The record is a 442-nucleotide part of an RNA from Stieleria bergensis, which matches "Bacterial large subunit ribosomal RNA" in Rfam.

[Rfam]
RNA sequence: CUCUCCGAAAUAUCUUGAGGGAUAGCGUCGAGCCACUAUUUACCGGGGGUAGAGAGACUGAAUCGGAUGGGGGCCCUUCCCGGGGUACCUCACCGAACCAAACUCCGAAUACCGGUAAAACUAUCUCGGCAGUCAGUCCCUGGGGGAUAAGCUCCAGGGUCGAGAGGGAAACAACCCAGAUCGCCUGCUAAGGUCCCUAAGGAAUACUCAGUCACUAAGGAAGUUGAAGUGCCGUGACAGCUGGGAUGUUGGCUUAGAAGCAGCCACCAUUUAAAAAGUGCGUAACAGCUUACCAGUCGAGCAUUUCUGCGCCGAUAAUGAACGGGAGUAAGUAUUCCACCGAAGCAGCGGAUUGAAGAUUUAUCUUCAGUGGUAGGAGAGCGUCGAAGACCAGAUACAAGCCAUACGGAAACGAGUGGUGUCGGGGUCUUCGAGUGAUUAU
Numbered sequence: 001c002u003c004u005c006c007g008a009a010a011u012a013u014c015u016u017g018a019g020g021g022a023u024a025g026c027g028u029c030g031a032g033c034c035a036c037u038a039u040u041u042a043c044c045g046g047g048g049g050u051a052g053a054g055a056g057a058c059u060g061a062a063u064c065g066g067a068u069g070g071g072g073g074c075c076c077u078u079c080c081c082g083g084g085g086u087a088c089c090u091c092a093c094c095g096a097a098c099c100a101a102a103c104u105c106c107g108a109a110u111a112c113c114g115g116u117a118a119a120a121c122u123a124u125c126u127c128g129g130c131a132g133u134c135a136g137u138c139c140c141u142g143g144g145g146g147a148u149a150a151g152c153u154c155c156a157g158g159g160u161c162g163a164g165a166g167g168g169a170a171a172c173a174a175c176c177c178a179g180a181u182c183g184c185c186u187g188c189u190a191a192g193g194u195c196c197c198u199a200a201g202g203a204a205u206a207c208u209c210a211g212u213c214a215c216u217a218a219g220g221a222a223g224u225u226g227a228a229g230u231g232c233c234g235u236g237a238c239a240g241c242u243g244g245g246a247u248g249u250u251g252g253c254u255u256a257g258a259a260g261c262a263g264c265c266a267c268c269a270u271u272u273a274a275a276a277a278g279u280g281c282g283u284a285a286c287a288g289c290u291u292a293c294c295a296g297u298c299g300a301g302c303a304u305u306u307c308u309g310c311g312c313c314g315a316u317a318a319u320g321a322a323c324g325g326g327a328g329u330a331a332g333u334a335u336u337c338c339a340c341c342g343a344a345g346c347a348g349c350g351g352a353u354u355g356a357a358g359a360u361u362u363a364u365c366u367u368c369a370g371u372g373g374u375a376g377g378a379g380a381g382c383g384u385c386g387a388a389g390a391c392c393a394g395a396u397a398c399a400a401g402c403c404a405u406a407c408g409g410a411a412a413c414g415a416g417u418g419g420u421g422u423c424g425g426g427g428u429c430u431u432c433g434a435g436u437g438a439u440u441a442u
Stems, first nucleotide, its partner, number of pairs: 001381006011024005026132001027130006037123001039119008052106001053104002059100002063096004070089002073086005136161001138159008166177003181351004186347003192341003201338007219313002223310002226307007240297005246270003251265003271275001276291001280289002352371008382437001384434009401420005407414002
The match comes from Rfam's covariance-model search (2661 bits). Its family is annotated with structural constituent of ribosome and ribosome in the Gene Ontology.